[Rfam]
Mason-Pfizer monkey virus packaging signal: a 277-nucleotide RNA sequence from Nannospalax galili. Rfam classes the family as a cis-regulatory element. The family's consensus secondary structure was predicted with PFOLD. This family represents a group of sequences that are related to the Mason-Pfizer monkey virus (MPMV) packaging signal.
RNA sequence: UGGUGCUCAGCAUGAGGGCUGGAUACGGAGGAUCCAGUGAGGGAAGAAGACGGCCCUAAAGGAACGCAUUCCACAACAAUUUUCACUCUGGACUCGCUGCGGGAACCUGCCUCGGCUACAACCAGAAGUAAGUACAGACGUCUGAUUAUGGGACAAGAAAUAAGCAGGCAUGAACUUUAUGUUAGGCAAUUGCAAGAAGCCUUGAAGACGUGAGGAGUAAAGGUUAAAAUAGAGGAUCUAUUAAGAUUCUUUGAAUUCAUUAAGGAAACCUGUCCUU
Numbered sequence: 001u002g003g004u005g006c007u008c009a010g011c012a013u014g015a016g017g018g019c020u021g022g023a024u025a026c027g028g029a030g031g032a033u034c035c036a037g038u039g040a041g042g043g044a045a046g047a048a049g050a051c052g053g054c055c056c057u058a059a060a061g062g063a064a065c066g067c068a069u070u071c072c073a074c075a076a077c078a079a080u081u082u083u084c085a086c087u088c089u090g091g092a093c094u095c096g097c098u099g100c101g102g103g104a105a106c107c108u109g110c111c112u113c114g115g116c117u118a119c120a121a122c123c124a125g126a127a128g129u130a131a132g133u134a135c136a137g138a139c140g141u142c143u144g145a146u147u148a149u150g151g152g153a154c155a156a157g158a159a160a161u162a163a164g165c166a167g168g169c170a171u172g173a174a175c176u177u178u179a180u181g182u183u184a185g186g187c188a189a190u191u192g193c194a195a196g197a198a199g200c201c202u203u204g205a206a207g208a209c210g211u212g213a214g215g216a217g218u219a220a221a222g223g224u225u226a227a228a229a230u231a232g233a234g235g236a237u238c239u240a241u242u243a244a245g246a247u248u249c250u251u252u253g254a255a256u257u258c259a260u261u262a263a264g265g266a267a268a269c270c271u272g273u274c275c276u277u
Stems, first nucleotide, its partner, number of pairs: 006030003013025002038047001085129003088125002094120001098114002101111002137154001141152004161204003164200002211253008221239005262277005